[Rfam]
Nucleotides: 067
Stems, first nucleotide, its partner, number of pairs: 011049007025039005053067005
Number, partner (000 for none) and nucleotide at each position: 001000c002000u003000u004000a005000a006000a007000g008000g009000a010000a011049g012048u013047u014046c015045g016044a017043u018000u019000a020000a021000g022000a023000a024000c025039g026038c027037u028036a029035c030000a031000u032000c033000a034000c035029g036028u037027a038026g039025c040000a041000a042000c043017a044016u045015c046014g047013a048012a049011c050000c051000a052000a053067c054066c055065u056064a057063c058000g059000u060000c061000g062000u063057g064056u065055a066054g067053g
The family of this 67-nucleotide RNA from Pontibacillus yanchengensis is "Bacillaceae-1 RNA". Pairs were carried over by alignment from the consensus structure, which is taken from published work. NCBI's taxonomy places the organism under Bacteria, Bacillati, Bacillota, Bacilli, Pontibacillus yanchengensis.